Overview: Plastid-ycf2 5UTR RNA: a 75-nucleotide RNA from Klebsormidium nitens. Rfam's curators write: Plastid ycf2 is a non-coding RNA (ncRNA) recognised in plastids. It was found in the prime untranslated region (5UTR) of ycf2 genes, it presents a tRNA-like motif which suggests it can be involved in mRNA maturation, particularly involved in defining the precise 5' end of the transcript. A reference for the family is Richter et al. (2023), "Retrograde signaling in plants: A critical review focusing on the GUN pathway and beyond", Plant Commun. The family's RNA type in Rfam is cis-regulatory element. A search with the family's covariance model found it, with a score of 92 bits.
RNA sequence: UUGCAUCCAGCAGGAGUCGAACCCGCUAACUCUCCAAUUAUGAGUUGGGCGCUUUCACCGUUCAGCCAUGGAUGC
Dot-bracket structure: ..((((((.((.((.......)).)).............(((.((((((((.......)))))))))))))))))